[Rfam]
RNA sequence: AGCCGCGUGGUCAACACAUAGAGAACUAUUCUUUCGCCUUUUACUAAAGAAUACCGUGUGUGGGCCACCAAAAGCGGCAUACGCCUAUGUUUGAAGCCUUCUCUACAACUAAUAGAGGG
Numbered sequence: 001a002g003c004c005g006c007g008u009g010g011u012c013a014a015c016a017c018a019u020a021g022a023g024a025a026c027u028a029u030u031c032u033u034u035c036g037c038c039u040u041u042u043a044c045u046a047a048a049g050a051a052u053a054c055c056g057u058g059u060g061u062g063g064g065c066c067a068c069c070a071a072a073a074g075c076g077g078c079a080u081a082c083g084c085c086u087a088u089g090u091u092u093g094a095a096g097c098c099u100u101c102u103c104u105a106c107a108a109c110u111a112a113u114a115g116a117g118g119g
Stems, first nucleotide, its partner, number of pairs: 003077004008067005014061005027053008097119006
The record is a 119-nucleotide sequence from Taxus chinensis, which matches "U5 spliceosomal RNA" in Rfam. U5 RNA is a component of both types of known spliceosome. The literature on the family includes a 1997 paper in Nucleic Acids Res by Zwieb, "The uRNA database". Taxonomically the source falls in Taxus (Eukaryota, Streptophytina, Spermatophyta, Acrogymnospermae). The match comes from Rfam's covariance-model search (85 bits).